[Rfam]
RNA: c-di-AMP riboswitch aptamer (ydaO/yuaA leader)
Organism: Metabacillus lacus
Nucleotides: 140
Base pairs, nucleotide, nucleotide: 011125012124013123014122018027019026020025028120029119030118031117032116033115038063039062064105065104066103072079073078082099083098084097085096
Number, partner (000 for none) and nucleotide at each position: 001000u002000c003000c004000a005000c006000u007000a008000a009000a010000a011125c012124g013123c014122u015000g016000a017000a018027u019026c020025u021000a022000u023000c024000a025020a026019g027018a028120g029119c030118g031117g032116g033115g034000g035000a036000a037000c038063c039062a040000u041000u042000u043000u044000c045000g046000a047000u048000a049000g050000c051000a052000u053000u054000u055000g056000c057000u058000a059000u060000c061000u062039u063038g064105g065104g066103g067000u068000g069000a070000a071000u072079c073078c074000u075000u076000a077000u078073g079072g080000u081000a082099g083098g084097g085096c086000g087000a088000c089000u090000c091000u092000u093000a094000c095000c096085g097084c098083c099082c100000g101000a102000a103066u104065c105064c106000g107000a108000c109000a110000g111000c112000u113000a114000a115033c116032c117031u118030c119029g120028c121000a122014a123013g124012c125011g126000u127000u128000g129000a130000u131000a132000a133000g134000a135000g136000a137000g138000u139000g140000a